[Rfam]
A member of the RNA family "DUF805b RNA", 33 nucleotides long.
It is one of the family's seed sequences.
The family's RNA type in Rfam is cis-regulatory element.
RNA sequence: UACGAGUAAUCCGAAAAUCGAUAAGAGUAGGAA
Numbered sequence: 001u002a003c004g005a006g007u008a009a010u011c012c013g014a015a016a017a018u019c020g021a022u023a024a025g026a027g028u029a030g031g032a033a
Stems, first nucleotide, its partner, number of pairs: 003020003010032003
Annotation: The family's consensus secondary structure is taken from published work.